[Rfam]
RNA sequence: AGCGCGACGGGGUCGACCGCGCGGGUGAGCAUCAGGUAGUUGCGGAGCAUGAUCUCGUGGCGGUUCUC
Number, nucleotide and partner (000 for none) at each position: 001a000002g000003c000004g000005c062006g061007a000008c059009g058010g000011g030012g000013u028014c000015g000016a026017c025018c024019g000020c000021g000022c000023g000024g018025g017026u016027g000028a013029g000030c011031a000032u000033c000034a000035g056036g055037u000038a053039g000040u052041u051042g050043c000044g048045g000046a000047g000048c044049a000050u042051g041052a040053u038054c000055u036056c035057g000058u009059g008060g000061c006062g005063g000064u000065u000066c000067u000068c000
A member of the RNA family "ASdes TB sRNA" from Nocardia ignorata, 68 nucleotides long. Rfam 15.1 lists 1,192 matches to the family in 825 species. For this family Rfam cites "Identification of small RNAs in Mycobacterium tuberculosis" (Arnvig and Young, Mol Microbiol, 2009). By type it is a small RNA.